Shown here is a 102-nucleotide sequence from Lachnospiraceae bacterium KH1T2, a member of the family "SAM riboswitch aptamer (S box leader)". From the family's description: The SAM riboswitch is found upstream of a number of genes which code for proteins involved in methionine or cysteine biosynthesis in Gram-positive bacteria. The organism belongs to Lachnospiraceae, within Bacteria.
RNA sequence: CUCUUAUUAAGAGUGGUGGAGACCCAAAGGAUCUAUGAAGCCACGACAACCUCCGUUUAGCGGAAGGUGCCAACCUUGAGCGAGAAAUUCGAACAAUGAGAG
Numbered sequence: 001c002u003c004u005u006a007u008u009a010a011g012a013g014u015g016g017u018g019g020a021g022a023c024c025c026a027a028a029g030g031a032u033c034u035a036u037g038a039a040g041c042c043a044c045g046a047c048a049a050c051c052u053c054c055g056u057u058u059a060g061c062g063g064a065a066g067g068u069g070c071c072a073a074c075c076u077u078g079a080g081c082g083a084g085a086a087a088u089u090c091g092a093a094c095a096a097u098g099a100g101a102g
Base pairs, nucleotide, nucleotide: 001102002101003100004099005098006097007096008095013044014043015042016041017040021033022032030076045071047069048068050067051066052064053063054062055061081091082090083089084088